[Rfam]
RNA: Y RNA-like
RNA sequence: ACGGCGAAUGCCGACGGAACUACAGCCUUCACGCUCCAGGUCGCGGGUUCGAGUCCCGCCAGGCCGCAAGGCCUGUAGCUCAGUGGAUAGAGCAGGAUGUUUCGUCACUCUCGUCGCCGUGGC
Numbered sequence: 001a002c003g004g005c006g007a008a009u010g011c012c013g014a015c016g017g018a019a020c021u022a023c024a025g026c027c028u029u030c031a032c033g034c035u036c037c038a039g040g041u042c043g044c045g046g047g048u049u050c051g052a053g054u055c056c057c058g059c060c061a062g063g064c065c066g067c068a069a070g071g072c073c074u075g076u077a078g079c080u081c082a083g084u085g086g087a088u089a090g091a092g093c094a095g096g097a098u099g100u101u102u103c104g105u106c107a108c109u110c111u112c113g114u115c116g117c118c119g120u121g122g123c
Stems, first nucleotide, its partner, number of pairs: 002119006013106007037095001043059005060075006078093004